[Rfam]
RNA sequence: GAUGAAAAGGAUGAAUAUUGGGGUUCGGAUCUAUAUGACCUGAAAAUGGCCAUCCAUUUCCUGAUUCAUC
Numbered sequence: 001g002a003u004g005a006a007a008a009g010g011a012u013g014a015a016u017a018u019u020g021g022g023g024u025u026c027g028g029a030u031c032u033a034u035a036u037g038a039c040c041u042g043a044a045a046a047u048g049g050c051c052a053u054c055c056a057u058u059u060c061c062u063g064a065u066u067c068a069u070c
Stems, first nucleotide, its partner, number of pairs: 001070006